[Rfam]
RNA sequence: UCUGCUUCAUCAAUUUUGGAUCUACACUGUAUAUCUUUAUAUGACGGUGUGGUAUUUUGAAAUGAAGCUUCAGAGGAAAUUGUUCCUCUCGAUAUCGAUUGCUACCUCCAUGGAGUGUUUGGACGUUGGAGAACAACGUUU
Numbered sequence: 001u002c003u004g005c006u007u008c009a010u011c012a013a014u015u016u017u018g019g020a021u022c023u024a025c026a027c028u029g030u031a032u033a034u035c036u037u038u039a040u041a042u043g044a045c046g047g048u049g050u051g052g053u054a055u056u057u058u059g060a061a062a063u064g065a066a067g068c069u070u071c072a073g074a075g076g077a078a079a080u081u082g083u084u085c086c087u088c089u090c091g092a093u094a095u096c097g098a099u100u101g102c103u104a105c106c107u108c109c110a111u112g113g114a115g116u117g118u119u120u121g122g123a124c125g126u127u128g129g130a131g132a133a134c135a136a137c138g139u140u141u
Base pairs, nucleotide, nucleotide: 001072004068005067008064009063010062012057013056015054022052023051024050025049026048027047028046029045030044082134083133084132085131087129088128090125091124095123096122098120102113103112104111

Shown here is a 141-nucleotide RNA sequence from Olea europaea, a member of the family "Small nucleolar RNA snoR136". On this family, see Chen and Wu, Nucleic Acids Res 2009: "Mining small RNA sequencing data: a new approach to identify small nucleolar RNAs in Arabidopsis". The source organism's lineage runs through Eukaryota, Spermatophyta, lamiids, Lamiales and Olea europaea. It scores 47 bits against the family's covariance model. Rfam classes the family as an H/ACA-box small nucleolar RNA.